[Rfam]
RNA: Listeria sRNA rli60
RNA sequence: AGAUUUAAAGCUUUGGUGUAGUAAAUUAUGAAUGAUUCUAUCCCAUUUUAUUAAAAGGAGUUAAUGACCAUGAAACAAGUAAAUUUUAAUGCCGUCAUUACAAUUUUAUUACUCUAGCAGGACUUUGAAUUCGCGUUUUAACGGCGGUUUCGAGUCCUGUUUAGGUUACUUAAAUGGGAUUCUUUCA
Number, nucleotide and partner (000 for none) at each position: 001a000002g000003a000004u000005u000006u000007a000008a000009a000010g000011c000012u000013u000014u000015g000016g000017u000018g000019u000020a000021g186022u000023a184024a000025a000026u000027u000028a000029u000030g000031a000032a000033u000034g000035a000036u000037u000038c000039u000040a000041u000042c000043c000044c176045a175046u174047u173048u172049u000050a170051u000052u168053a167054a000055a000056a000057g115058g114059a113060g112061u000062u100063a099064a098065u097066g096067a095068c094069c000070a000071u091072g090073a000074a000075a000076c000077a000078a000079g000080u000081a000082a000083a000084u000085u000086u000087u000088a000089a000090u072091g071092c000093c000094g068095u067096c066097a065098u064099u063100a062101c000102a000103a000104u000105u000106u000107u000108a000109u000110u000111a000112c060113u059114c058115u057116a000117g000118c000119a158120g157121g156122a155123c154124u000125u153126u000127g000128a150129a148130u147131u000132c146133g145134c143135g142136u141137u000138u000139u000140a000141a136142c135143g134144g000145c133146g132147g130148u129149u000150u128151c000152g000153a125154g123155u122156c121157c120158u119159g000160u000161u000162u000163a000164g000165g000166u000167u053168a052169c000170u050171u000172a048173a047174a046175u045176g044177g000178g000179a000180u000181u000182c000183u000184u023185u000186c021187a000